[Rfam]
RNA sequence: CAGUGAUCACCGCGAUGAUGUGCGACGGAGUCCGCGGUCGGUCCAGGUAUUUUUCAGACGUCCAUCGCACCGCACCCAGAAGCAGAAACGUCGGGUGCGGCCCGAACACGGGAGAGAACGCUGAGCGUUAUGAC
Numbered sequence: 001c002a003g004u005g006a007u008c009a010c011c012g013c014g015a016u017g018a019u020g021u022g023c024g025a026c027g028g029a030g031u032c033c034g035c036g037g038u039c040g041g042u043c044c045a046g047g048u049a050u051u052u053u054u055c056a057g058a059c060g061u062c063c064a065u066c067g068c069a070c071c072g073c074a075c076c077c078a079g080a081a082g083c084a085g086a087a088a089c090g091u092c093g094g095g096u097g098c099g100g101c102c103c104g105a106a107c108a109c110g111g112g113a114g115a116g117a118a119c120g121c122u123g124a125g126c127g128u129u130a131u132g133a134c
Stems, first nucleotide, its partner, number of pairs: 001046001003044001005042001007040001009038004070100008079091001
Rfam assigns this 134-nucleotide RNA from Corynebacterium meridianum to the family "atpB RNA". Pairs were carried over by alignment from the consensus structure, which is taken from published work. It scores 113 bits against the family's covariance model. The source organism's lineage runs through Bacteria, Bacillati, Mycobacteriales, Corynebacteriaceae and Corynebacterium. The family's RNA type in Rfam is cis-regulatory element.